[Rfam]
RNA sequence: GGUGCAUCGAUCCUAACGAUCAACAAACUUUUCACUUGAAAGUUUGUUCGUUCGGCUCGAGUUAUCA
Number, nucleotide and partner (000 for none) at each position: 001g066002g065003u064004g062005c061006a000007u000008c059009g058010a057011u000012c055013c054014u000015a000016a000017c050018g049019a000020u000021c046022a045023a044024c000025a000026a000027a000028c000029u000030u000031u000032u000033c000034a000035c000036u000037u000038g000039a000040a000041a000042g000043u000044u023045u022046g021047u000048u000049c018050g017051u000052u000053c000054g013055g012056c000057u010058c009059g008060a000061g005062u004063u000064a003065u002066c001067a000
Rfam assigns this 67-nucleotide RNA from Apis mellifera to the family "mir-375 microRNA precursor family". The source organism's lineage runs through Eukaryota, Pterygota, Neoptera, Apocrita and Apis. Gene Ontology terms of the family: RISC complex and miRNA-mediated post-transcriptional gene silencing. The family has 47 seed sequences and 824 matches in Rfam 15.1. The sequence is in the family's curated seed alignment. A reference for the family is Chen et al. (2005), "The developmental miRNA profiles of zebrafish as determined by small RNA cloning", Genes Dev.